[Rfam]
eL15-Euryarchaeota ribosomal protein leader: a 51-nucleotide sequence.
The family's RNA type in Rfam is cis-regulatory leader.
The base pairs follow the family's consensus structure, which is taken from published work.
RNA sequence: CGGGACCAGUCCCGUUAAGGAAUGUGGCCUGAUAUCAGGCUGAACCUUUGG
Number, nucleotide and partner (000 for none) at each position: 001c014002g013003g012004g011005a010006c000007c000008a000009g000010u005011c004012c003013c002014g001015u000016u000017a000018a047019g046020g045021a000022a000023u000024g000025u000026g041027g040028c039029c038030u037031g000032a000033u000034a000035u000036c000037a030038g029039g028040c027041u026042g000043a000044a000045c020046c019047u018048u000049u000050g000051g000